[Rfam]
RNA sequence: GGUACCUUUAAUUCAGUCCAGAGAGGCUGGCAAGGGCAGCGGAUGUUUGUAGAUUGCGAGAAAAAGUUGAGGCAAUUCCUAGAGGGAAUGCUUGUACUUUUGCCUAUUCGCGCAGGCUAUAAUAGAUUGAGAGGCUAAUUGUCAGUUUUCCAUUGACGAUUAGCCUCUUUUU
Numbered sequence: 001g002g003u004a005c006c007u008u009u010a011a012u013u014c015a016g017u018c019c020a021g022a023g024a025g026g027c028u029g030g031c032a033a034g035g036g037c038a039g040c041g042g043a044u045g046u047u048u049g050u051a052g053a054u055u056g057c058g059a060g061a062a063a064a065a066g067u068u069g070a071g072g073c074a075a076u077u078c079c080u081a082g083a084g085g086g087a088a089u090g091c092u093u094g095u096a097c098u099u100u101u102g103c104c105u106a107u108u109c110g111c112g113c114a115g116g117c118u119a120u121a122a123u124a125g126a127u128u129g130a131g132a133g134g135c136u137a138a139u140u141g142u143c144a145g146u147u148u149u150c151c152a153u154u155g156a157c158g159a160u161u162a163g164c165c166u167c168u169u170u171u172u
Stems, first nucleotide, its partner, number of pairs: 005035004013030006066097002070093005076087004131167016